Rfam assigns this 84-nucleotide RNA from Geodermatophilus obscurus to the family "c-di-GMP-II-GAG riboswitch aptamer".
Clan: c-di-GMP_II riboswitch clan.
It scores 45 bits against the family's covariance model.
On this family, see Weinberg et al., Proc Natl Acad Sci U S A 2017: "Bioinformatic analysis of riboswitch structures uncovers variant classes with altered ligand specificity".

RNA sequence: CACGAACGGGUAGUGAUGAUCCGCCGGGCGCACCUGGUCGCCAUAGCCCGGCGGGGAGCAGAGGCGAAACCGGGCCCGUCCUAG
Numbered sequence: 001c002a003c004g005a006a007c008g009g010g011u012a013g014u015g016a017u018g019a020u021c022c023g024c025c026g027g028g029c030g031c032a033c034c035u036g037g038u039c040g041c042c043a044u045a046g047c048c049c050g051g052c053g054g055g056g057a058g059c060a061g062a063g064g065c066g067a068a069a070c071c072g073g074g075c076c077c078g079u080c081c082u083a084g
Stems, first nucleotide, its partner, number of pairs: 001084001004081001006079006013059002021054008036071002038067005
The source organism's lineage runs through Bacteria, Bacillati, Actinomycetota, Geodermatophilales and Geodermatophilus obscurus. The family's consensus secondary structure is taken from published work.